[Rfam]
RNA sequence: CAAGCAUGAAUGCUGCUAUUUUCCGUUUCUUUUUUUACUUUAGCACCUGAAUCCGGGGGCUUUUGCGCAAAGAAAAGAAACGGAAAAUCGCGCGAAAGGCCUCCCUUGUGGAGGCUUUUUUAUA
Numbered sequence: 001c002a003a004g005c006a007u008g009a010a011u012g013c014u015g016c017u018a019u020u021u022u023c024c025g026u027u028u029c030u031u032u033u034u035u036u037a038c039u040u041u042a043g044c045a046c047c048u049g050a051a052u053c054c055g056g057g058g059g060c061u062u063u064u065g066c067g068c069a070a071a072g073a074a075a076a077g078a079a080a081c082g083g084a085a086a087a088u089c090g091c092g093c094g095a096a097a098g099g100c101c102u103c104c105c106u107u108g109u110g111g112a113g114g115c116u117u118u119u120u121u122a123u124a
Stems, first nucleotide, its partner, number of pairs: 015091002018088001020086014035071002041055001056066001058064002096118009

Shown here is a 124-nucleotide RNA from Erwinia sp. OLSSP12, a member of the family "Phenylalanine leader peptide". The literature on the family includes a 1978 paper in Proc Natl Acad Sci U S A by Zurawski et al., "Nucleotide sequence of the leader region of the phenylalanine operon of Escherichia coli". The family's consensus secondary structure was predicted with CMfinder. Lineage of the source: Bacteria > Pseudomonadota > Gammaproteobacteria > Enterobacterales > Erwinia. A search with the family's covariance model found it, with a score of 60 bits. The family has 71 seed sequences and 379 matches in Rfam 15.1.